[Rfam]
RNA sequence: CCUUUAUAAAGAAGAGGCGAGAGAACAGGCUCCAUGACCCUCUGGCAACCGGCCGUUCGCGUCCAAGGUGCCACAUCCUGCCCCCUAUCCGGGAACUAUAAACG
Numbered sequence: 001c002c003u004u005u006a007u008a009a010a011g012a013a014g015a016g017g018c019g020a021g022a023g024a025a026c027a028g029g030c031u032c033c034a035u036g037a038c039c040c041u042c043u044g045g046c047a048a049c050c051g052g053c054c055g056u057u058c059g060c061g062u063c064c065a066a067g068g069u070g071c072c073a074c075a076u077c078c079u080g081c082c083c084c085c086u087a088u089c090c091g092g093g094a095a096c097u098a099u100a101a102a103c104g
Stems, first nucleotide, its partner, number of pairs: 001104001003102006013043005021032003026080004044072004049068002051064002054061001081093003